[Rfam]
RNA: permuted transfer-messenger RNA
Organism: Acidomonas methanolica
Nucleotides: 223
Stems, first nucleotide, its partner, number of pairs: 001147005014137001016135002026125003030122003036052005053107007148163004
Number, partner (000 for none) and nucleotide at each position: 001147g002146g003145c004144g005143a006000u007000a008000a009000a010000c011000g012000g013000c014137u015000c016135g017134u018000g019000g020000a021000a022000u023000a024000a025000a026125c027124g028123u029000u030122g031121u032120g033000g034000a035000c036052c037051c038050g039049g040048g041000g042000g043000c044000a045000g046000u047000g048040c049039c050038c051037g052036g053107c054106g055105u056104c057103u058102c059101c060000a061000c062000c063000a064000u065000u066000c067000u068000c069000u070000c071000u072000c073000c074000c075000g076000g077000c078000u079000u080000c081000c082000g083000u084000c085000a086000g087000g088000a089000c090000c091000g092000g093000g094000a095000a096000c097000c098000g099000a100000u101059g102058g103057g104056g105055a106054c107053g108000a109000a110000a111000c112000a113000g114000g115000c116000u117000c118000g119000a120032c121031a122030c123028g124027c125026g126000c127000a128000g129000u130000a131000a132000a133000g134017a135016c136000c137014a138000g139000u140000c141000u142000u143005u144004u145003g146002c147001c148163c149162g150161g151160c152000a153000u154000u155000g156000u157000a158000c159000c160151g161150c162149c163148g164000u165000u166000a167000u168000c169000g170000g171000g172000c173000u174000g175000a176000c177000c178000u179000a180000c181000a182000a183000g184000u185000g186000c187000c188000a189000a190000c191000g192000a193000c194000a195000a196000u197000u198000c199000g200000a201000a202000g203000g204000u205000g206000c207000u208000c209000g210000c211000u212000g213000u214000c215000g216000c217000u218000g219000c220000a221000u222000a223000a